[Rfam]
RNA sequence: CCAGGGGGCCGGGCGACCGCGGCGUAGCAAUACGGCGAGGAAAGUCCGGGCUCCACGAAAAGACGGUGCCAGUUAACGGCUGGCGGAGGCAACUCCAGGGACAGUGCAACAGAGAGCAGGUCGCUAAGGCUUCGGCCCAGUGACAGUGAAAGGGUGCGGUAAGAGCGCACCGCGUCCCCGGCAACGGGCGACGGCAUGGUAAACCCCACCGGGAGCAAGACCGAAUAGGGGCGACGCGGGAGCAAUCCCAGGGCUUUUUCGGCCCCGAUCGCCCGGGUUGGUUGCUUGAGGCCAUGAGCGAUCAUGGCCCUAGAGGAAUGGUCGCCCAUUCGUCGCAAGACGAAGGACAGAACCCGGCUUAUAGGCCCCCUGGCGCU
Numbered sequence: 001c002c003a004g005g006g007g008g009c010c011g012g013g014c015g016a017c018c019g020c021g022g023c024g025u026a027g028c029a030a031u032a033c034g035g036c037g038a039g040g041a042a043a044g045u046c047c048g049g050g051c052u053c054c055a056c057g058a059a060a061a062g063a064c065g066g067u068g069c070c071a072g073u074u075a076a077c078g079g080c081u082g083g084c085g086g087a088g089g090c091a092a093c094u095c096c097a098g099g100g101a102c103a104g105u106g107c108a109a110c111a112g113a114g115a116g117c118a119g120g121u122c123g124c125u126a127a128g129g130c131u132u133c134g135g136c137c138c139a140g141u142g143a144c145a146g147u148g149a150a151a152g153g154g155u156g157c158g159g160u161a162a163g164a165g166c167g168c169a170c171c172g173c174g175u176c177c178c179c180g181g182c183a184a185c186g187g188g189c190g191a192c193g194g195c196a197u198g199g200u201a202a203a204c205c206c207c208a209c210c211g212g213g214a215g216c217a218a219g220a221c222c223g224a225a226u227a228g229g230g231g232c233g234a235c236g237c238g239g240g241a242g243c244a245a246u247c248c249c250a251g252g253g254c255u256u257u258u259u260c261g262g263c264c265c266c267g268a269u270c271g272c273c274c275g276g277g278u279u280g281g282u283u284g285c286u287u288g289a290g291g292c293c294a295u296g297a298g299c300g301a302u303c304a305u306g307g308c309c310c311u312a313g314a315g316g317a318a319u320g321g322u323c324g325c326c327c328a329u330u331c332g333u334c335g336c337a338a339g340a341c342g343a344a345g346g347a348c349a350g351a352a353c354c355c356g357g358c359u360u361a362u363a364g365g366c367c368c369c370c371u372g373g374c375g376c377u
Base pairs, nucleotide, nucleotide: 001373002372003371004370005369006368007367008366009365010364011362012326013325014324015323016322017321018320020037021036023034024033025032026031042360043359044358046357047356048355049354050353051215052214053213054212060259061258062257064211065210066209067208068207069083070082071081072080073079084098085096086095087094088093099206100205104204105203106200107199121145123141124140125139128136153171154170155169156168157167158166172195173193174192175191176190178187179186180185219283220282221281222280229274230273231272232271233270234269251265252264253263254262255261290309291308292307293306294305295304296303297302
RNA: Bacterial RNase P class A